[Rfam]
RNA sequence: GGAUAUGAGGGUAAUCUGGCUGUGAGAUCUGACAUGCAUGGAUUGAUCUGACUGGUCUGGCUAGUUUAGACAGGUGUUUGCUUUCUUCCUUGACAUUCUAUGAGUGUUUUUCCUGAUGCUGUGUGCUUGGUUAAUGAGAACAGCCUCCCUAAUAGACAUGGUCAAGGGUGUGUGGUAGCUGUGCUCCCCUGCUGCAAGCUCUAAGUAAGCGCAAGGUCCAUUUGUAGAUGAUUGUAGAGUAGUCAAGUAGUCAAUACUGAAGACAUAUCCAAAUGAGAAGCUGCAUGCAGCAGUCUACCAGUGGCUUU
Numbered sequence: 001g002g003a004u005a006u007g008a009g010g011g012u013a014a015u016c017u018g019g020c021u022g023u024g025a026g027a028u029c030u031g032a033c034a035u036g037c038a039u040g041g042a043u044u045g046a047u048c049u050g051a052c053u054g055g056u057c058u059g060g061c062u063a064g065u066u067u068a069g070a071c072a073g074g075u076g077u078u079u080g081c082u083u084u085c086u087u088c089c090u091u092g093a094c095a096u097u098c099u100a101u102g103a104g105u106g107u108u109u110u111u112c113c114u115g116a117u118g119c120u121g122u123g124u125g126c127u128u129g130g131u132u133a134a135u136g137a138g139a140a141c142a143g144c145c146u147c148c149c150u151a152a153u154a155g156a157c158a159u160g161g162u163c164a165a166g167g168g169u170g171u172g173u174g175g176u177a178g179c180u181g182u183g184c185u186c187c188c189c190u191g192c193u194g195c196a197a198g199c200u201c202u203a204a205g206u207a208a209g210c211g212c213a214a215g216g217u218c219c220a221u222u223u224g225u226a227g228a229u230g231a232u233u234g235u236a237g238a239g240u241a242g243u244c245a246a247g248u249a250g251u252c253a254a255u256a257c258u259g260a261a262g263a264c265a266u267a268u269c270c271a272a273a274u275g276a277g278a279a280g281c282u283g284c285a286u287g288c289a290g291c292a293g294u295c296u297a298c299c300a301g302u303g304g305c306u307u308u
Stems, first nucleotide, its partner, number of pairs: 001099003006092006013084002018081001024078002027075005033069001035063001037059002041057004045052001107161002109158001111156002113130004118126002131152003138148001140146001178248003184242002187239001189237004199230001202227001205225005271308003277299001280294005